[Rfam]
RNA sequence: GAGCAUGUGACGAAGUACUCGGAUUCCCCUUCAAGACAUAAUGGGUGAUGUAAGUCGAGUUUCUGAUGCU
Numbered sequence: 001g002a003g004c005a006u007g008u009g010a011c012g013a014a015g016u017a018c019u020c021g022g023a024u025u026c027c028c029c030u031u032c033a034a035g036a037c038a039u040a041a042u043g044g045g046u047g048a049u050g051u052a053a054g055u056c057g058a059g060u061u062u063c064u065g066a067u068g069c070u
Base pairs, nucleotide, nucleotide: 002070003069004068005067
Annotation
Rfam assigns this 70-nucleotide sequence from Prunus armeniaca to the family "Small nucleolar RNA snoR60". A search with the family's covariance model found it, with a score of 75 bits. Lineage of the source: Eukaryota > Streptophyta > Rosales > Amygdaleae > Prunus. The family's RNA type in Rfam is C/D-box small nucleolar RNA. Clan: SNORD101 clan. The literature on the family includes a 2000 paper in J Biol Chem by Barneche et al., "Fibrillarin genes encode both a conserved nucleolar protein and a novel small nucleolar RNA involved in ribosomal RNA methylation in Arabidopsis thaliana".